[Rfam]
RNA sequence: AGGCCUUGGCAGAGAAGCAGGGUCUGAUCCAUAGCCUCCAUGAUAGCUGUUGAUCAGUCCUUGCCUCUCUUUUUCUCUCCA
Numbered sequence: 001a002g003g004c005c006u007u008g009g010c011a012g013a014g015a016a017g018c019a020g021g022g023u024c025u026g027a028u029c030c031a032u033a034g035c036c037u038c039c040a041u042g043a044u045a046g047c048u049g050u051u052g053a054u055c056a057g058u059c060c061u062u063g064c065c066u067c068u069c070u071u072u073u074u075c076u077c078u079c080c081a
Stems, first nucleotide, its partner, number of pairs: 008073002011070005017064004022059001024057006032049004
RNA: mir-574 microRNA precursor family
Organism: Pipistrellus kuhlii